[Rfam]
RNA sequence: AUUACCCAUCGUGAUGUGGUUUUUGCAGUCAUAAUAUGUUGAUUGCAUAGGGCAAUAUUUUAUUGCCCUUUAAUUUUA
Numbered sequence: 001a002u003u004a005c006c007c008a009u010c011g012u013g014a015u016g017u018g019g020u021u022u023u024u025g026c027a028g029u030c031a032u033a034a035u036a037u038g039u040u041g042a043u044u045g046c047a048u049a050g051g052g053c054a055a056u057a058u059u060u061u062a063u064u065g066c067c068c069u070u071u072a073a074u075u076u077u078a
Base pairs, nucleotide, nucleotide: 025046026045027044028043029042030041031040049069050068051067052066053065054064055063056062057061

This 78-nucleotide RNA sequence from [Enterobacter] lignolyticus belongs to the Rfam family "ABC transporter regulator". Taxonomically the source falls in [Enterobacter] lignolyticus (Bacteria, Pseudomonadati, Pseudomonadota, Gammaproteobacteria). The literature on the family includes a 2012 paper in EMBO J by Chao et al., "An atlas of Hfq-bound transcripts reveals 3' UTRs as a genomic reservoir of regulatory small RNAs". It is annotated as a cis-regulatory element.